[Rfam]
About this RNA:
Rfam assigns this 91-nucleotide sequence from Pantoea sp. Aalb to the family "CopA-like RNA". Gene Ontology term of the family: mRNA binding. About the family: In several groups of bacterial plasmids, antisense RNAs regulate copy number through inhibition of replication initiator protein synthesis. The match comes from Rfam's covariance-model search (72 bits). The family's RNA type in Rfam is antisense RNA.
RNA sequence: AUAGAGCAACAGUUUCUAUGCAGUUUUAAGUGAGCCUCGUUAAUCUUCUUUAGUCGCCAAACUAUGGGGAGGAUUUUCGAGGUUUUAUUUU
Numbered sequence: 001a002u003a004g005a006g007c008a009a010c011a012g013u014u015u016c017u018a019u020g021c022a023g024u025u026u027u028a029a030g031u032g033a034g035c036c037u038c039g040u041u042a043a044u045c046u047u048c049u050u051u052a053g054u055c056g057c058c059a060a061a062c063u064a065u066g067g068g069g070a071g072g073a074u075u076u077u078c079g080a081g082g083u084u085u086u087a088u089u090u091u
Base pairs, nucleotide, nucleotide: 001019002018003017004016005015028091029090030089032085033084034083035082036081037080038079039078042075043074044073045072046071047070